[Rfam]
RNA sequence: CGAUGUAUGAUAUAACACUCAGGGCCUUACAAAAGACCCAGUGAACAAUUUUUGCAAACCCUGUCCUUUCGAGGUCAGGGUA
Numbered sequence: 001c002g003a004u005g006u007a008u009g010a011u012a013u014a015a016c017a018c019u020c021a022g023g024g025c026c027u028u029a030c031a032a033a034a035g036a037c038c039c040a041g042u043g044a045a046c047a048a049u050u051u052u053u054g055c056a057a058a059c060c061c062u063g064u065c066c067u068u069u070c071g072a073g074g075u076c077a078g079g080g081u082a
Stems, first nucleotide, its partner, number of pairs: 022039003026035003058081006065074003